[Rfam]
RNA sequence: AAUAUCAGAGGGCGGAACAGGUAGCCGCCACCACGCAAAAAUGCGUUAGGAGAUGUAGAUUACCACCUACCUAUAUU
Numbered sequence: 001a002a003u004a005u006c007a008g009a010g011g012g013c014g015g016a017a018c019a020g021g022u023a024g025c026c027g028c029c030a031c032c033a034c035g036c037a038a039a040a041a042u043g044c045g046u047u048a049g050g051a052g053a054u055g056u057a058g059a060u061u062a063c064c065a066c067c068u069a070c071c072u073a074u075a076u077u
Stems, first nucleotide, its partner, number of pairs: 001077005007072002011029005020064004031050001034045004055070004
Dot-bracket structure: (((((.((..(((((....[[[[.))))).(..((((....))))....)....((((..]]]]..)))))))))))
Notes:
This 77-nucleotide RNA sequence from Clostridium thailandense belongs to the Rfam family "skipping-rope RNA". Rfam classes the family as a small RNA. NCBI's taxonomy places the organism under Bacteria, Bacillati, Clostridia, Eubacteriales, Clostridium. Pairs were carried over by alignment from the consensus structure, which is taken from published work.